[Rfam]
RNA sequence: ACAUAUCUCUAGUUUAUGCGUGAAUCUAACCCCAUCCUAGCCGUUCGUUUUCCUCUCUCAUAUCCCUAGUCCCUACCUCAUCCGAUGGCGUUAGAUUCACGCACAAACUCGCGAUCUGUCU
Numbered sequence: 001a002c003a004u005a006u007c008u009c010u011a012g013u014u015u016a017u018g019c020g021u022g023a024a025u026c027u028a029a030c031c032c033c034a035u036c037c038u039a040g041c042c043g044u045u046c047g048u049u050u051u052c053c054u055c056u057c058u059c060a061u062a063u064c065c066c067u068a069g070u071c072c073c074u075a076c077c078u079c080a081u082c083c084g085a086u087g088g089c090g091u092u093a094g095a096u097u098c099a100c101g102c103a104c105a106a107a108c109u110c111g112c113g114a115u116c117u118g119u120c121u
Stems, first nucleotide, its partner, number of pairs: 001119003005115003011109005017103010028092003032088002043078001
The family of this 121-nucleotide RNA sequence from Acer saccharum is "MIR403 microRNA precursor family".
The match comes from Rfam's covariance-model search (90 bits).
Its family is annotated with RISC complex and miRNA-mediated post-transcriptional gene silencing in the Gene Ontology.
For this family Rfam cites "High throughput approaches reveal splicing of primary microRNA transcripts and tissue specific expression of mature microRNAs in Vitis vinifera" (Mica et al., BMC Genomics, 2009).